[Rfam]
RNA sequence: CCACUCGUCGCAUGCUGAAAGGAGCCCGCGCAAUAAGUUUGCUUUUUUGUUAUAAUCACUUUUAACGGCUAUAAUCUGCCAAAACCAGCUUAUCUAGCUUAAACAGGAUUAAAAUAUUAUAAUAGAAUUCUUCGUAUGCGUGACUCUAAUUAGUGUUAAGUCGAAAUAUGGUUCGUGUAGUGGAAGUUGCACGGGGUAAUAAACUUA
Numbered sequence: 001c002c003a004c005u006c007g008u009c010g011c012a013u014g015c016u017g018a019a020a021g022g023a024g025c026c027c028g029c030g031c032a033a034u035a036a037g038u039u040u041g042c043u044u045u046u047u048u049g050u051u052a053u054a055a056u057c058a059c060u061u062u063u064a065a066c067g068g069c070u071a072u073a074a075u076c077u078g079c080c081a082a083a084a085c086c087a088g089c090u091u092a093u094c095u096a097g098c099u100u101a102a103a104c105a106g107g108a109u110u111a112a113a114a115u116a117u118u119a120u121a122a123u124a125g126a127a128u129u130c131u132u133c134g135u136a137u138g139c140g141u142g143a144c145u146c147u148a149a150u151u152a153g154u155g156u157u158a159a160g161u162c163g164a165a166a167u168a169u170g171g172u173u174c175g176u177g178u179a180g181u182g183g184a185a186g187u188u189g190c191a192c193g194g195g196g197u198a199a200u201a202a203a204c205u206u207a
Stems, first nucleotide, its partner, number of pairs: 001170001003167001006163002012156007021147004027142006037133001172195010

Rfam assigns this 207-nucleotide part of an RNA to the family "Bacterial small subunit ribosomal RNA". Rfam links the family to the GO terms ribosome and structural constituent of ribosome.